[Rfam]
RNA: Bacterial RNase P class A
Organism: Photobacterium sp. SKA34
RNA sequence: GGAGUAGGUCAGGUAAUCGCUGCUUCAUUGAUGUCCUUUGGGAGACUGAUGAAGGGGAGGAAAGUCCGGGCUCCACAGGGCAGGGUGCCAGAUAACGUCUGGGGGGCGCAAGCCCACGACAAGUGCAGCAGAGAGCAAACCGCCGAUGGCCUAUUGCUUGCAAUAGUGCACAGGUAAGGGUGAAAGGGUGCGGUAAGAGCGCACCGCGCAGCUAGUAAUAGUUUGUGGCAGGGUAAACUCCACCCGGAGCAAGACCAAAUAGGUCCCUAAUGGCGCGGCCCGCGUUGGGGACGGGUAGGUUGCUUGAGUCUGUGAGCGAUUGCAGACCUAGACGAAUGAUUGCCGCCGCGUAAGCGGAACAAAACCCGGCUUAUCGACCGACUCCCUAC
Numbered sequence: 001g002g003a004g005u006a007g008g009u010c011a012g013g014u015a016a017u018c019g020c021u022g023c024u025u026c027a028u029u030g031a032u033g034u035c036c037u038u039u040g041g042g043a044g045a046c047u048g049a050u051g052a053a054g055g056g057g058a059g060g061a062a063a064g065u066c067c068g069g070g071c072u073c074c075a076c077a078g079g080g081c082a083g084g085g086u087g088c089c090a091g092a093u094a095a096c097g098u099c100u101g102g103g104g105g106g107c108g109c110a111a112g113c114c115c116a117c118g119a120c121a122a123g124u125g126c127a128g129c130a131g132a133g134a135g136c137a138a139a140c141c142g143c144c145g146a147u148g149g150c151c152u153a154u155u156g157c158u159u160g161c162a163a164u165a166g167u168g169c170a171c172a173g174g175u176a177a178g179g180g181u182g183a184a185a186g187g188g189u190g191c192g193g194u195a196a197g198a199g200c201g202c203a204c205c206g207c208g209c210a211g212c213u214a215g216u217a218a219u220a221g222u223u224u225g226u227g228g229c230a231g232g233g234u235a236a237a238c239u240c241c242a243c244c245c246g247g248a249g250c251a252a253g254a255c256c257a258a259a260u261a262g263g264u265c266c267c268u269a270a271u272g273g274c275g276c277g278g279c280c281c282g283c284g285u286u287g288g289g290g291a292c293g294g295g296u297a298g299g300u301u302g303c304u305u306g307a308g309u310c311u312g313u314g315a316g317c318g319a320u321u322g323c324a325g326a327c328c329u330a331g332a333c334g335a336a337u338g339a340u341u342g343c344c345g346c347c348g349c350g351u352a353a354g355c356g357g358a359a360c361a362a363a364a365c366c367c368g369g370c371u372u373a374u375c376g377a378c379c380g381a382c383u384c385c386c387u388a389c
Stems, first nucleotide, its partner, number of pairs: 001385005007379004011374001012344007020057002023054008062372003066369005071249004078281004083245005088102005103117001104115004118240002123238002125234002140179002142175003147170002187205006206229001207227005212221003253301004263292006272286005308327008